RNA: Group II catalytic intron D1-D4-4
Organism: Frankia casuarinae
RNA sequence: UUGCCGGUGAAAGUCCGGUCCGGGUAGCUGCCAGGAGGCCCGGUAGCAGGCUGGCGGCUUCGUCUGGAAACGGGCGGGGUCGAAGCCCAGCGUCAAAGGCCCUGUGAGAGGGGGAGCGAGAGCGCGGUCCGUAGCAUAA
Numbered sequence: 001u002u003g004c005c006g007g008u009g010a011a012a013g014u015c016c017g018g019u020c021c022g023g024g025u026a027g028c029u030g031c032c033a034g035g036a037g038g039c040c041c042g043g044u045a046g047c048a049g050g051c052u053g054g055c056g057g058c059u060u061c062g063u064c065u066g067g068a069a070a071c072g073g074g075c076g077g078g079g080u081c082g083a084a085g086c087c088c089a090g091c092g093u094c095a096a097a098g099g100c101c102c103u104g105u106g107a108g109a110g111g112g113g114g115a116g117c118g119a120g121a122g123c124g125c126g127g128u129c130c131g132u133a134g135c136a137u138a139a
Stems, first nucleotide, its partner, number of pairs: 020043005050091005055082006065072002100112004116132003